A member of the RNA family "Purine riboswitch aptamer" from Peribacillus deserti, 101 nucleotides long.
[Rfam]
RNA sequence: GCGUGUAAUAAAAAUUAUCCUUGUAUAAUAUCAGUUGAAUGGUCUGAUAGUUUCUACCCGGCAGCCAUAAUUGCCGGACUACAGGGAAGUAUGAAUAAAAA
Number, nucleotide and partner (000 for none) at each position: 001g000002c000003g000004u000005g000006u000007a000008a000009u000010a000011a000012a000013a000014a000015u000016u000017a000018u087019c086020c085021u084022u083023g082024u081025a080026u000027a000028a000029u049030a048031u047032c046033a045034g044035u000036u000037g000038a000039a000040u000041g000042g000043u000044c034045u033046g032047a031048u030049a029050g000051u000052u000053u000054c000055u000056a000057c000058c077059c076060g075061g074062c073063a072064g071065c000066c000067a000068u000069a000070a000071u064072u063073g062074c061075c060076g059077g058078a000079c000080u025081a024082c023083a022084g021085g020086g019087a018088a000089g000090u000091a000092u000093g000094a000095a000096u000097a000098a000099a000100a000101a000